A member of the RNA family "mir-5890 microRNA precursor family" from Haemonchus placei, 77 nucleotides long. Its family is annotated with RISC complex and miRNA-mediated post-transcriptional gene silencing in the Gene Ontology. Pairs were carried over by alignment from the consensus structure, which was predicted with RNAalifold. The organism belongs to Haemonchus, within Eukaryota.
RNA sequence: UUGACGCAACAGCAAAUAACUGAAUUGCGGGAGGACUUUUUGUUUCUACCCCUUUUCAUUUUUAUACUGAUUUGGAG
Numbered sequence: 001u002u003g004a005c006g007c008a009a010c011a012g013c014a015a016a017u018a019a020c021u022g023a024a025u026u027g028c029g030g031g032a033g034g035a036c037u038u039u040u041u042g043u044u045u046c047u048a049c050c051c052c053u054u055u056u057c058a059u060u061u062u063u064a065u066a067c068u069g070a071u072u073u074g075g076a077g
Base pairs, nucleotide, nucleotide: 008071010069011068012067014065016063018061019060021058022057023056024055027052029051030050031049032047033046034045035044036042
Dot-bracket structure: .......(.(((.(.(.((.((((..(.((((((((.....).)))).))))..)))).)).).).))).)......